[Rfam]
RNA: U5 spliceosomal RNA
Organism: Cryptococcus amylolentus
RNA sequence: AGCGGGGGAUCAAACACAAAUCGAAUAAAUCUCUCGCCUUUUACUAGAGAUAUCCGUGUAUUUGGUCCGCAAACCCGCGUUCGAAUUUCUUUCCUCCCACCUUCAUGGGCA
Numbered sequence: 001a002g003c004g005g006g007g008g009a010u011c012a013a014a015c016a017c018a019a020a021u022c023g024a025a026u027a028a029a030u031c032u033c034u035c036g037c038c039u040u041u042u043a044c045u046a047g048a049g050a051u052a053u054c055c056g057u058g059u060a061u062u063u064g065g066u067c068c069g070c071a072a073a074c075c076c077g078c079g080u081u082c083g084a085a086u087u088u089c090u091u092u093c094c095u096c097c098c099a100c101c102u103u104c105a106u107g108g109g110c111a
Stems, first nucleotide, its partner, number of pairs: 003077004008067007016059003027053001029051006096109004